[Rfam]
RNA sequence: UUCAGAUACUAGCAAACUAUUCGAAAGAAUAGGACGCAAAGCUAUAGGGCCUUCCCUUCACCGGAUGGUAGCCAGUUACCAAA
Numbered sequence: 001u002u003c004a005g006a007u008a009c010u011a012g013c014a015a016a017c018u019a020u021u022c023g024a025a026a027g028a029a030u031a032g033g034a035c036g037c038a039a040a041g042c043u044a045u046a047g048g049g050c051c052u053u054c055c056c057u058u059c060a061c062c063g064g065a066u067g068g069u070a071g072c073c074a075g076u077u078a079c080c081a082a083a
Stems, first nucleotide, its partner, number of pairs: 012037002017032006040077004047073002049069003053065003